Rfam assigns this 101-nucleotide RNA sequence from Olea europaea to the family "Small nucleolar RNA Z43".
RNA sequence: GGACGAUGACAACUAAAUUGAUAUUGACGUUCGUCGUAAUGGUGUUCAAAUGAUACACCUUGCCGACCAAGCUGAUAUGUCACCACCCAUAAACUGAGUCC
Numbered sequence: 001g002g003a004c005g006a007u008g009a010c011a012a013c014u015a016a017a018u019u020g021a022u023a024u025u026g027a028c029g030u031u032c033g034u035c036g037u038a039a040u041g042g043u044g045u046u047c048a049a050a051u052g053a054u055a056c057a058c059c060u061u062g063c064c065g066a067c068c069a070a071g072c073u074g075a076u077a078u079g080u081c082a083c084c085a086c087c088c089a090u091a092a093a094c095u096g097a098g099u100c101c
Base pairs, nucleotide, nucleotide: 001101002100003099004098048061049060
A search with the family's covariance model found it, with a score of 68 bits.